Rfam assigns this 130-nucleotide RNA from Rhamnella rubrinervis to the family "MIR390 microRNA precursor family". The match comes from Rfam's covariance-model search (98 bits). Pairs were carried over by alignment from the consensus structure, which was predicted with WAR. Rfam links the family to the GO terms miRNA-mediated post-transcriptional gene silencing and RISC complex. Rfam 15.1 lists 649 matches to the family in 206 species.

RNA sequence: AGGAAGAAUCUGUAAAGCUCAGGAGGGAUAGCACCAUGGAUAUACAUGGUUCCUUUUAUAGUUCAUAAUAAUGGCUUUAAUUUCAACCUUUCUAUAGCGCUAUCCAUCCUGAGUUUCAUGGCUUCUUCUU
Numbered sequence: 001a002g003g004a005a006g007a008a009u010c011u012g013u014a015a016a017g018c019u020c021a022g023g024a025g026g027g028a029u030a031g032c033a034c035c036a037u038g039g040a041u042a043u044a045c046a047u048g049g050u051u052c053c054u055u056u057u058a059u060a061g062u063u064c065a066u067a068a069u070a071a072u073g074g075c076u077u078u079a080a081u082u083u084c085a086a087c088c089u090u091u092c093u094a095u096a097g098c099g100c101u102a103u104c105c106a107u108c109c110u111g112a113g114u115u116u117c118a119u120g121g122c123u124u125c126u127u128c129u130u
Stems, first nucleotide, its partner, number of pairs: 010121001016115009026105007034097001